[Rfam]
RNA sequence: AUGUCCUUUUAAAUUUGAUCCAGAGAGAUCAGAAAGGGAAGAAAAUAAUAUAGCUAUAUAAGUGUAGCUAAAAUUAGCUAUAGUUAUAUAGUUGUAAUUAAAAUGCUUUCCUUUGGGAAAGCAUUUUUUAUU
Numbered sequence: 001a002u003g004u005c006c007u008u009u010u011a012a013a014u015u016u017g018a019u020c021c022a023g024a025g026a027g028a029u030c031a032g033a034a035a036g037g038g039a040a041g042a043a044a045a046u047a048a049u050a051u052a053g054c055u056a057u058a059u060a061a062g063u064g065u066a067g068c069u070a071a072a073a074u075u076a077g078c079u080a081u082a083g084u085u086a087u088a089u090a091g092u093u094g095u096a097a098u099u100a101a102a103a104u105g106c107u108u109u110c111c112u113u114u115g116g117g118a119a120a121g122c123a124u125u126u127u128u129u130a131u132u
Stems, first nucleotide, its partner, number of pairs: 004038006015032006057088005063082008100127012
The record is a 132-nucleotide RNA from Clostridium senegalense, which matches "PyrR binding site" in Rfam. This family represents the PyrR binding site and terminator structure. This RNA structure is found upstream of a variety of genes involved in pyrimidine biosynthesis and transport. The alignment also includes a portion of the antiterminator structure. The literature on the family includes a 2001 paper in Nucleic Acids Res by Bonner et al., "Molecular recognition of pyr mRNA by the Bacillus subtilis attenuation regulatory protein PyrR". The family's consensus secondary structure is taken from published work.